[Rfam]
RNA sequence: GCCACUCUGGAAAGUGACCCGGGUGCACCGGCCGGGUCCGCCGACGGUGAAAGCCCCGCGUCGCUGAGACGCCCCGGGCGAAACUCUCAGGUUCAUGACAGAGGGGGAGUU
Numbered sequence: 001g002c003c004a005c006u007c008u009g010g011a012a013a014g015u016g017a018c019c020c021g022g023g024u025g026c027a028c029c030g031g032c033c034g035g036g037u038c039c040g041c042c043g044a045c046g047g048u049g050a051a052a053g054c055c056c057c058g059c060g061u062c063g064c065u066g067a068g069a070c071g072c073c074c075c076g077g078g079c080g081a082a083a084c085u086c087u088c089a090g091g092u093u094c095a096u097g098a099c100a101g102a103g104g105g106g107g108a109g110u111u
Stems, first nucleotide, its partner, number of pairs: 002106002005103005016038007040092003043088002047086001049084001053079004
RNA: Glycine riboswitch aptamer